[Rfam]
The family of this 136-nucleotide RNA is "RT-3 RNA". Rfam classes the family as a small RNA. It is one of the family's seed sequences. The family's consensus secondary structure is taken from published work.

RNA sequence: UAUCGGCAAGGCAUAGGCAACGCGAUUGCCGAGCCACACCGAGGGAGCGGAGCCUCACCACACCGCAAAAGCGGAGGUGAAAGAUAACGGACACGGGGUGGUGCGGUCAGUAGCGUGAGCGAGAACGGCAAGCCCC
Numbered sequence: 001u002a003u004c005g006g007c008a009a010g011g012c013a014u015a016g017g018c019a020a021c022g023c024g025a026u027u028g029c030c031g032a033g034c035c036a037c038a039c040c041g042a043g044g045g046a047g048c049g050g051a052g053c054c055u056c057a058c059c060a061c062a063c064c065g066c067a068a069a070a071g072c073g074g075a076g077g078u079g080a081a082a083g084a085u086a087a088c089g090g091a092c093a094c095g096g097g098g099u100g101g102u103g104c105g106g107u108c109a110g111u112a113g114c115g116u117g118a119g120c121g122a123g124a125a126c127g128g129c130a131a132g133c134c135c136c
Stems, first nucleotide, its partner, number of pairs: 003042004010035003016030005044054002055080005064073003095136005103129002106126002